[Rfam]
RNA: Vault RNA
RNA sequence: GAGUCAGCUUAACCUACAGGUUCCUUUGCAAUGUGGGUAAUUUUGUAUGAAUUGCUAAUUCUUAGCCAUUCAAACCCUGUAGGUGCUGUCUGGCUUUUUA
Number, nucleotide and partner (000 for none) at each position: 001g000002a095003g094004u093005c092006a091007g090008c000009u000010u000011a000012a084013c083014c082015u081016a000017c000018a000019g078020g077021u000022u000023c000024c000025u074026u073027u072028g071029c000030a000031a000032u000033g000034u000035g000036g000037g000038u000039a000040a000041u000042u000043u000044u000045g000046u000047a000048u000049g000050a000051a000052u000053u000054g000055c000056u000057a000058a000059u000060u000061c000062u000063u000064a000065g000066c000067c000068a000069u000070u000071c028072a027073a026074a025075c000076c000077c020078u019079g000080u000081a015082g014083g013084u012085g000086c000087u000088g000089u000090c007091u006092g005093g004094c003095u002096u000097u000098u000099u000100a000